[Rfam]
Hepatitis C virus stem-loop SL2531 and SL2549AU: a 72-nucleotide sequence from Orthohepacivirus hominis.
The family's RNA type in Rfam is cis-regulatory element.
The sequence is in the family's curated seed alignment.
The organism belongs to Orthohepacivirus hominis, within Viruses.
The family's consensus secondary structure was predicted with RNAfold.
RNA sequence: UCCUUGCUGAUGCACGCAUCUGCGCAUGCAUGUGGCUUAUGCUGCUCAUAGGGCAAGCUGAAGCCGCCCUCG
Numbered sequence: 001u002c003c004u005u006g007c008u009g010a011u012g013c014a015c016g017c018a019u020c021u022g023c024g025c026a027u028g029c030a031u032g033u034g035g036c037u038u039a040u041g042c043u044g045c046u047c048a049u050a051g052g053g054c055a056a057g058c059u060g061a062a063g064c065c066g067c068c069c070u071c072g
Base pairs, nucleotide, nucleotide: 006023007022009020010019011018012017024067025066028064029063031061034058037055